[Rfam]
RNA sequence: GUCCACGUGGCAGUGGACCAGAGCCAGAAGCCUGCGAGGCCAAUGGCGGCAGCCGACCAAAAUCUCGUCACCAUGACGAGCAAGCCGGCCGC
Numbered sequence: 001g002u003c004c005a006c007g008u009g010g011c012a013g014u015g016g017a018c019c020a021g022a023g024c025c026a027g028a029a030g031c032c033u034g035c036g037a038g039g040c041c042a043a044u045g046g047c048g049g050c051a052g053c054c055g056a057c058c059a060a061a062a063u064c065u066c067g068u069c070a071c072c073a074u075g076a077c078g079a080g081c082a083a084g085c086c087g088g089c090c091g092c
Stems, first nucleotide, its partner, number of pairs: 001018004023047004031039002049092002052089004057084001063082001064080006